[Rfam]
RNA sequence: AUACUUACCUGGACAGGGUCUAUGGCUGAUCAUUAAGGGUCAUGGUCUAGGUUGGUGACUUCCAUUGCACUUUGGAAGGGUGCUAGCUUAAGAUCUCCCCACUGAGGGAGAGUCUACGUCAUAAUUUCGUUCGCGUGGCCCCUGCCAAU
Numbered sequence: 001a002u003a004c005u006u007a008c009c010u011g012g013a014c015a016g017g018g019u020c021u022a023u024g025g026c027u028g029a030u031c032a033u034u035a036a037g038g039g040u041c042a043u044g045g046u047c048u049a050g051g052u053u054g055g056u057g058a059c060u061u062c063c064a065u066u067g068c069a070c071u072u073u074g075g076a077a078g079g080g081u082g083c084u085a086g087c088u089u090a091a092g093a094u095c096u097c098c099c100c101a102c103u104g105a106g107g108g109a110g111a112g113u114c115u116a117c118g119u120c121a122u123a124a125u126u127u128c129g130u131u132c133g134c135g136u137g138g139c140c141c142c143u144g145c146c147a148a149u
Base pairs, nucleotide, nucleotide: 012120013119014118016048017047018046019045020044023042024041025040026039027038049089050088051087053086055083056082057081059079060078061077062075063074091115092114093113094111095110096109098107099106
RNA: U1 spliceosomal RNA